Annotation
Shown here is an 86-nucleotide RNA from Hibiscus syriacus, a member of the family "mir-160 microRNA precursor family". Gene Ontology terms of the family: RISC complex and miRNA-mediated post-transcriptional gene silencing. The organism belongs to Hibiscus, within Eukaryota. Pairs were carried over by alignment from the consensus structure, which was predicted with PFOLD. On this family, see Rhoades et al., Cell 2002: "Prediction of plant microRNA targets".
[Rfam]
RNA sequence: UUCUGCCUGGCUCCCUGCAUGCCAACUAUGGAUGCUGUCGAUUAGUGUUGGCCCUUCCUAGUUGGCAUCCGAGGAGUCAGGCAGGU
Numbered sequence: 001u002u003c004u005g006c007c008u009g010g011c012u013c014c015c016u017g018c019a020u021g022c023c024a025a026c027u028a029u030g031g032a033u034g035c036u037g038u039c040g041a042u043u044a045g046u047g048u049u050g051g052c053c054c055u056u057c058c059u060a061g062u063u064g065g066c067a068u069c070c071g072a073g074g075a076g077u078c079a080g081g082c083a084g085g086u
Base pairs, nucleotide, nucleotide: 002085003084004083005082006081008079009078010077011076012075013074014073016071017070019068020067021066022065023064024063027060028059